The record is a 74-nucleotide RNA sequence from Chlamydomonas reinhardtii, which matches "tRNA" in Rfam.
The base pairs follow the family's consensus structure, which is taken from published work.
The source organism's lineage runs through Eukaryota, Viridiplantae, core chlorophytes, Chlorophyceae and Chlamydomonas.

RNA sequence: GAGCUUGUAGCUCAGUGGACUAGAGCACAUGGCUACGAACCAUGGGGUCGGGGGUUCGAAACCCUCCUGGCUCG
Numbered sequence: 001g002a003g004c005u006u007g008u009a010g011c012u013c014a015g016u017g018g019a020c021u022a023g024a025g026c027a028c029a030u031g032g033c034u035a036c037g038a039a040c041c042a043u044g045g046g047g048u049c050g051g052g053g054g055u056u057c058g059a060a061a062c063c064c065u066c067c068u069g070g071c072u073c074g
Base pairs, nucleotide, nucleotide: 001073002072003071004070005069007067010026011025012024013023028044029043030042031041032040050066051065052064053063054062